[Rfam]
Nucleotides: 107
Stems, first nucleotide, its partner, number of pairs: 002106006010099003018095005026089002033045005052071002055068004
Number, partner (000 for none) and nucleotide at each position: 001000a002106g003105a004104g005103c006102g007101g008000c009000a010099u011098c012097g013000u014000a015000a016000a017000g018095c019094c020093u021092g022091g023000u024000g025000a026089c027088c028000c029000c030000g031000g032000u033045c034044a035043c036042u037041c038000g039000g040000a041037g042036a043035g044034u045033g046000a047000c048000c049000u050000a051000g052071c053070u054000u055068c056067c057066g058065c059000u060000g061000a062000a063000a064000u065058g066057c067056g068055g069000c070053g071052g072000g073000a074000a075000a076000u077000a078000u079000u080000g081000a082000a083000a084000u085000c086000a087000a088027g089026g090000c091022c092021c093020a094019g095018g096000g097012u098011g099010a100000g101007c102006u103005g104004c105003u106002c107000g